[Rfam]
About this RNA: Rfam assigns this 166-nucleotide RNA from Leptolyngbya ectocarpi to the family "Group II catalytic intron D1-D4-3". Pairs were carried over by alignment from the consensus structure. A search with the family's covariance model found it, with a score of 134 bits. Rfam's curators write: Group II introns are found in rRNA, tRNA and mRNA of organelles in fungi, plants and protists, and also in mRNA in bacteria.

RNA sequence: CUUCCCGCGAGGGAGGGUCUGAAGGAAGCCAGCGGCAAACCAGCGAGCCGACGAACAGAAACGUCAUAGAAGGCCCGGAUUCCUGGGUGAGUUGGCACACCACAACGAAACCUAAAGGUCCAAGGAACAGGGUAAAUGACGCGGUUGUGCAGGGACAGUUCACGGU
Numbered sequence: 001c002u003u004c005c006c007g008c009g010a011g012g013g014a015g016g017g018u019c020u021g022a023a024g025g026a027a028g029c030c031a032g033c034g035g036c037a038a039a040c041c042a043g044c045g046a047g048c049c050g051a052c053g054a055a056c057a058g059a060a061a062c063g064u065c066a067u068a069g070a071a072g073g074c075c076c077g078g079a080u081u082c083c084u085g086g087g088u089g090a091g092u093u094g095g096c097a098c099a100c101c102a103c104a105a106c107g108a109a110a111c112c113u114a115a116a117g118g119u120c121c122a123a124g125g126a127a128c129a130g131g132g133u134a135a136a137u138g139a140c141g142c143g144g145u146u147g148u149g150c151a152g153g154g155a156c157a158g159u160u161c162a163c164g165g166u
Base pairs, nucleotide, nucleotide: 001016002015003014004013005012006011028166029165030164035159036158040153041152043150044149045148046146047145048144049143050142062141063140064139065138066137067136073133074132075131080127081126082125083124084123085113086112087111088110091106092105093104094103